[Rfam]
Nucleotides: 120
Base pairs, nucleotide, nucleotide: 003052004051005050006049007048010045011044012043025040026039027038028037066113067112069110073106075104076103085098086097
Number, partner (000 for none) and nucleotide at each position: 001000u002000g003052g004051u005050c006049a007048u008000u009000a010045c011044c012043a013000a014000g015000g016000c017000u018000u019000u020000a021000g022000a023000g024000c025040g026039c027038a028037g029000u030000u031000u032000c033000u034000c035000a036000u037028u038027u039026g040025c041000u042000g043012u044011g045010g046000a047000c048007a049006u050005g051004a052003c053000c054000a055000c056000a057000a058000a059000a060000u061000a062000u063000u064000u065000u066113c067112c068000a069110a070000u071000u072000g073106g074000a075104u076103u077000u078000u079000c080000u081000u082000u083000c084000u085098g086097c087000u088000a089000c090000a091000u092000u093000g094000g095000u096000a097086g098085c099000c100000u101000u102000c103076a104075g105000a106073c107000u108000a109000u110069u111000g112067g113066g114000a115000a116000c117000a118000u119000u120000u
This 120-nucleotide sequence from Molossus molossus belongs to the Rfam family "Small nucleolar RNA SNORA32". About the family: ACA32 is a member of the H/ACA class of snoRNA that guide the sites of modification of uridines to pseudouridines. NCBI's taxonomy places the organism under Eukaryota, Vertebrata, Sarcopterygii, Laurasiatheria, Molossus. Rfam links the family to the GO terms nucleolus and RNA processing.